[Rfam]
RNA: Mammalian CPEB3 ribozyme
Organism: Crocodylus porosus
RNA sequence: CCAGCUGCCAUAGCAGCCAUUGCAGGAGCACUCACUUCACAGUCCUAUCAGAUUCUAAUGAAUCUGCAAAUUCUGCU
Numbered sequence: 001c002c003a004g005c006u007g008c009c010a011u012a013g014c015a016g017c018c019a020u021u022g023c024a025g026g027a028g029c030a031c032u033c034a035c036u037u038c039a040c041a042g043u044c045c046u047a048u049c050a051g052a053u054u055c056u057a058a059u060g061a062a063u064c065u066g067c068a069a070a071u072u073c074u075g076c077u
Stems, first nucleotide, its partner, number of pairs: 013045001016043002022076006028040001049066007